[Rfam]
This 84-nucleotide RNA from Limosa lapponica belongs to the Rfam family "Small nucleolar RNA SNORD121A". The family's RNA type in Rfam is C/D-box small nucleolar RNA. Gene Ontology terms of the family: RNA processing and nucleolus. Pairs were carried over by alignment from the consensus structure, which was predicted with WAR. A search with the family's covariance model found it, with a score of 67 bits.

RNA sequence: GUCCGAAAUACAGCGAUGCGUUCUUUUCCAAGCACAUAUCUGAUUGCUCUAUGUGCAAAAUGACUGUUGCUGAGUGUUCUGGAU
Numbered sequence: 001g002u003c004c005g006a007a008a009u010a011c012a013g014c015g016a017u018g019c020g021u022u023c024u025u026u027u028c029c030a031a032g033c034a035c036a037u038a039u040c041u042g043a044u045u046g047c048u049c050u051a052u053g054u055g056c057a058a059a060a061u062g063a064c065u066g067u068u069g070c071u072g073a074g075u076g077u078u079c080u081g082g083a084u
Stems, first nucleotide, its partner, number of pairs: 001084005008077004